Annotation:
SAM riboswitch aptamer (S box leader): a 102-nucleotide RNA from Dethiosulfovibrio peptidovorans. Gene Ontology term of the family: regulation of gene expression. A search with the family's covariance model found it, with a score of 90 bits. The source organism's lineage runs through Bacteria, Thermotogati, Synergistia, Synergistales and Dethiosulfovibrio peptidovorans.
RNA sequence: GAACCAUCCAGAGCGGCGGAGGGACUGGCCCUACGAAGCCGCGGCAACCUUCGCUAUAGCGAGACGGUGCCAAAUCCAGCAGGAAUUCCUGGCAGAUGGUCG
Numbered sequence: 001g002a003a004c005c006a007u008c009c010a011g012a013g014c015g016g017c018g019g020a021g022g023g024a025c026u027g028g029c030c031c032u033a034c035g036a037a038g039c040c041g042c043g044g045c046a047a048c049c050u051u052c053g054c055u056a057u058a059g060c061g062a063g064a065c066g067g068u069g070c071c072a073a074a075u076c077c078a079g080c081a082g083g084a085a086u087u088c089c090u091g092g093c094a095g096a097u098g099g100u101c102g
Stems, first nucleotide, its partner, number of pairs: 003100006013042005021031003025079004043071004048067002050063004075094001080091004